[Rfam]
RNA: TPP riboswitch aptamer (THI element)
Organism: Bifidobacterium felsineum
Nucleotides: 102
Base pairs, nucleotide, nucleotide: 006090007089008088009087010086012051013050014049017026018025019024033046034045035044036043037042057082058081059080060079063076064075065074066073
Number, partner (000 for none) and nucleotide at each position: 001000a002000c003000c004000g005000u006090a007089a008088c009087g010086a011000a012051c013050g014049g015000g016000a017026g018025c019024c020000g021000c022000a023000a024019g025018g026017c027000u028000g029000a030000g031000a032000g033046g034045a035044a036043g037042c038000g039000c040000c041000a042037g043036c044035u045034u046033c047000g048000a049014c050013c051012g052000g053000g054000g055000a056000a057082c058081u059080u060079g061000a062000c063076g064075c065074g066073g067000g068000u069000c070000a071000u072000g073066c074065c075064g076063c077000c078000g079060u080059a081058a082057g083000g084000a085000a086010u087009c088008g089007u090006u091000g092000a093000u094000u095000c096000a097000a098000g099000a100000u101000u102000u